[Rfam]
RNA sequence: GGUGGGGUUCCCGAGCGGCCAAAGGGAGCAGACUCUAAAUCUGCCGUCAUCGACUUCGAAGGUUCGAAUCCUUCCCCCACCA
Numbered sequence: 001g002g003u004g005g006g007g008u009u010c011c012c013g014a015g016c017g018g019c020c021a022a023a024g025g026g027a028g029c030a031g032a033c034u035c036u037a038a039a040u041c042u043g044c045c046g047u048c049a050u051c052g053a054c055u056u057c058g059a060a061g062g063u064u065c066g067a068a069u070c071c072u073u074c075c076c077c078c079a080c081c082a
Base pairs, nucleotide, nucleotide: 001081002080003079004078005077006076007075010026011025012024028044029043030042031041032040058074059073060072061071062070
This 82-nucleotide RNA belongs to the Rfam family "tRNA".
It is one of the family's seed sequences.
The family's consensus secondary structure is taken from published work.
Rfam classes the family as a transfer RNA.